Shown here is a 126-nucleotide RNA sequence from Tatumella ptyseos, a member of the family "Phenylalanine leader peptide". It scores 93 bits against the family's covariance model. It is annotated as a cis-regulatory leader. Rfam 15.1 lists 379 matches to the family in 290 species.

RNA sequence: UAUGCAACCCCUCGUGUUUUUCUUCUCAUUCUUUUUUAGCAUGCCUUCUUCCGGGAGAGAUGUUGUCGUAUAAGAAUGAAUGAGAAGACAAACAGCAAAGCCUCCCGUAAGGGGGGCUUUUUUAUU
Numbered sequence: 001u002a003u004g005c006a007a008c009c010c011c012u013c014g015u016g017u018u019u020u021u022c023u024u025c026u027c028a029u030u031c032u033u034u035u036u037u038a039g040c041a042u043g044c045c046u047u048c049u050u051c052c053g054g055g056a057g058a059g060a061u062g063u064u065g066u067c068g069u070a071u072a073a074g075a076a077u078g079a080a081u082g083a084g085a086a087g088a089c090a091a092a093c094a095g096c097a098a099a100g101c102c103u104c105c106c107g108u109a110a111g112g113g114g115g116g117c118u119u120u121u122u123u124a125u126u
Stems, first nucleotide, its partner, number of pairs: 016093004021088011033076002036073003042056001044054002057067002060064001097120010